[Rfam]
Nucleotides: 134
Stems, first nucleotide, its partner, number of pairs: 001055004014046006021039001023038001024035002067126005086108006093102001
Number, partner (000 for none) and nucleotide at each position: 001055c002054c003053u004052c005000u006000u007000u008000u009000c010000u011000u012000g013000g014046c015045a016044u017043g018042c019041a020000c021039g022000c023038c024035g025034u026000u027000u028000c029000c030000u031000u032000g033000u034025a035024c036000u037000c038023g039021u040000g041019u042018g043017u044016a045015u046014g047000u048000u049000a050000u051000g052004g053003a054002g055001g056000g057000a058000c059000a060000a061000a062000a063000u064000g065000c066000c067126c068125a069124g070123u071122g072000c073000u074000a075000u076000g077000u078000c079000u080000u081000c082000g083000g084000u085000g086108c087107c088106a089105g090104a091103a092000u093102g094000u095000u096000u097000c098000u099000c100000g101000u102093c103091u104090u105089c106088u107087g108086g109000u110000u111000c112000u113000a114000u115000c116000c117000u118000c119000a120000g121000u122071c123070a124069c125068u126067g127000g128000u129000a130000u131000a132000c133000u134000c